[Rfam]
RNA sequence: UCAAUUUAGGGCAGAAUACGCCGCUUGCAAAAAAUGACACUAACCGACGUUUUAAUACGCGUCGGUUAUUUUUUUGC
Numbered sequence: 001u002c003a004a005u006u007u008a009g010g011g012c013a014g015a016a017u018a019c020g021c022c023g024c025u026u027g028c029a030a031a032a033a034a035u036g037a038c039a040c041u042a043a044c045c046g047a048c049g050u051u052u053u054a055a056u057a058c059g060c061g062u063c064g065g066u067u068a069u070u071u072u073u074u075u076g077c
Stems, first nucleotide, its partner, number of pairs: 011021002041068009